[Rfam]
Shown here is an 80-nucleotide RNA from Medicago truncatula, a member of the family "MIR5269 microRNA precursor family".

RNA sequence: UUGGGUAAAAUUAAUGUGAAUCCCACACUUUGAAAAUGGAUCCCACAUAAAGUUGUAGGACUCACAUUGAUUUUGGCCAA
Numbered sequence: 001u002u003g004g005g006u007a008a009a010a011u012u013a014a015u016g017u018g019a020a021u022c023c024c025a026c027a028c029u030u031u032g033a034a035a036a037u038g039g040a041u042c043c044c045a046c047a048u049a050a051a052g053u054u055g056u057a058g059g060a061c062u063c064a065c066a067u068u069g070a071u072u073u074u075g076g077c078c079a080a
Base pairs, nucleotide, nucleotide: 001080002079003078004077006075007074008073009072010071011070012069013068014067015066016065017064018063023058025056027053028052029051030050031049032048
The family's consensus secondary structure was predicted with RNAalifold.